Shown here is a 392-nucleotide sequence from Pseudomonas japonica, a member of the family "transfer-messenger RNA". It is annotated as a non-coding RNA gene.

Nucleotides: 392
Base pairs, nucleotide, nucleotide: 001388002387003386004385005384006383007382020361021360022359023358024357025356026355027354034348035347037345039343040342041341043336044335045334046333047332048067049066050065051064052063055082056081057080058079059078060077126146127145130143131142132141133140134139176212177211178210179209180208181207183203185202186201187200192226193225194224195223196222230258231257232256233255234254242274244272276310277309278308279307282304283303284302286299287298288297290328291327292326294323295322296321365381366380367379368378369377
Number, partner (000 for none) and nucleotide at each position: 001388g002387g003386g004385g005384c006383c007382g008000a009000u010000u011000a012000g013000g014000a015000u016000u017000c018000g019000a020361c021360g022359c023358c024357g025356g026355u027354a028000a029000c030000g031000a032000a033000a034348c035347u036000c037345u038000a039343g040342g041341u042000g043336c044335a045334u046333g047332c048067c049066g050065a051064g052063u053000u054000g055082g056081u057080a058079a059078c060077a061000g062000a063052a064051c065050u066049c067048g068000u069000a070000a071000a072000u073000c074000c075000a076000c077060u078059g079058u080057u081056g082055c083000a084000a085000c086000u087000u088000u089000c090000u091000a092000u093000a094000g095000u096000u097000g098000c099000c100000a101000a102000u103000g104000a105000c106000g107000a108000a109000a110000a111000c112000u113000a114000c115000g116000a117000g118000g119000g120000u121000u122000a123000c124000g125000c126146u127145c128000u129000c130143g131142c132141u133140g134139c135000g136000u137000a138000a139134g140133c141132a142131g143130c144000c145127g146126a147000g148000c149000c150000c151000g152000c153000u154000c155000u156000c157000c158000u159000g160000g161000u162000a163000g164000c165000u166000u167000c168000g169000g170000c171000u172000c173000c174000a175000g176212c177211a178210a179209u180208c181207a182000u183203c184000a185202g186201g187200g188000g189000a190000u191000g192226c193225c194224u195223g196222u197000a198000a199000a200187c201186c202185c203183g204000a205000a206000a207181u208180g209179a210178u211177u212176g213000u214000c215000a216000u217000a218000c219000a220000g221000a222196a223195c224194a225193g226192g227000a228000u229000c230258g231257c232256c233255g234254u235000g236000c237000a238000g239000u240000a241000c242274g243000u244272u245000g246000u247000g248000g249000a250000c251000g252000a253000a254234g255233c256232g257231g258230c259000u260000a261000a262000a263000a264000c265000u266000u267000a268000c269000a270000c271000a272244a273000c274242u275000c276310g277309u278308c279307c280000a281000a282304a283303g284302c285000a286299c287298c288297c289000u290328g291327c292326c293000c294323g295322u296321c297288g298287g299286g300000c301000g302284g303283c304282u305000g306000c307279g308278g309277a310276u311000u312000a313000a314000c315000u316000c317000a318000a319000u320000a321296g322295a323294c324000a325000c326292g327291g328290c329000u330000a331000a332047g333046c334045a335044u336043g337000u338000a339000g340000u341041a342040c343039c344000g345037a346000c347035a348034g349000c350000g351000g352000a353000g354027u355026a356025c357024u358023g359022g360021c361020g362000g363000a364000c365381g366380g367379g368378g369377g370000u371000u372000c373000a374000a375000a376000u377369c378368c379367c380366c381365c382007c383006g384005g385004u386003u387002c388001c389000a390000c391000c392000a

It scores 200 bits against the family's covariance model. The family's consensus secondary structure is taken from published work. NCBI's taxonomy places the organism under Bacteria, Pseudomonadati, Gammaproteobacteria, Pseudomonadales, Pseudomonas.